The family of this 142-nucleotide RNA sequence from Methyloprofundus sedimenti is "Bacterial antisense RNA HPnc0260". The family's consensus secondary structure was predicted with CMfinder. The literature on the family includes a 2010 paper in Nature by Sharma et al., "The primary transcriptome of the major human pathogen Helicobacter pylori".
[Rfam]
RNA sequence: GGUGAAAUUUAUUUAAAACGUCAACCCACUAUCAACUCAGAAAACAGGGUUAAAGUUAAACAAAAUAACAAACCUUAAAACCUAUUAAAAAUCUAGUAAUUAAUGGUGCGCCCGAGACGAUUCGAACGUCCGACCCCUGCCU
Dot-bracket structure: ........................((...(.((......)).)...))......(((.........)))..................................(((.(....((.((((.......))))))..).)))...